[Rfam]
RNA: L2-Alphaproteobacteria ribosomal protein leader
Organism: Rhodobacter capsulatus
RNA sequence: GGGGAGCUACGGCGCCCCUUACGCAACGGACCUGCAAGGUCCAAAGCAACGGAAGACAGAGA
Numbered sequence: 001g002g003g004g005a006g007c008u009a010c011g012g013c014g015c016c017c018c019u020u021a022c023g024c025a026a027c028g029g030a031c032c033u034g035c036a037a038g039g040u041c042c043a044a045a046g047c048a049a050c051g052g053a054a055g056a057c058a059g060a061g062a
Stems, first nucleotide, its partner, number of pairs: 001019004006015002028042005